[Rfam]
RNA sequence: CACUGUGCUGGUCGGAAUAGCAAUAACGACAGCAGCACAGGAAGAGCGGGGGACUGUGAGGAAGUUCUGAAACACCCCGGCAGGCGGCGAAGGCAGCACCUGUGAACGAAAAGGCUACCGGGU
Numbered sequence: 001c002a003c004u005g006u007g008c009u010g011g012u013c014g015g016a017a018u019a020g021c022a023a024u025a026a027c028g029a030c031a032g033c034a035g036c037a038c039a040g041g042a043a044g045a046g047c048g049g050g051g052g053a054c055u056g057u058g059a060g061g062a063a064g065u066u067c068u069g070a071a072a073c074a075c076c077c078c079g080g081c082a083g084g085c086g087g088c089g090a091a092g093g094c095a096g097c098a099c100c101u102g103u104g105a106a107c108g109a110a111a112a113g114g115c116u117a118c119c120g121g122g123u
Stems, first nucleotide, its partner, number of pairs: 003040008029057004047079005064107004080103005092119002095116003

A member of the RNA family "Betaproteobacteria-1 RNA", 123 nucleotides long. Pairs were carried over by alignment from the consensus structure, which is taken from published work. It is annotated as a small RNA.